[Rfam]
RNA: serC leader
Organism: Aureimonas endophytica
RNA sequence: CAGCGGGACACGCCUCCCCAACGAGGCGCUUCUAUCUGGAAGGAUAGCUUUG
Number, nucleotide and partner (000 for none) at each position: 001c000002a000003g000004c000005g000006g000007g000008a000009c000010a000011c028012g027013c026014c025015u024016c023017c000018c000019c000020a000021a000022c000023g016024a015025g014026g013027c012028g011029c000030u000031u000032c047033u046034a045035u044036c043037u042038g000039g000040a000041a000042g037043g036044a035045u034046a033047g032048c000049u000050u000051u000052g000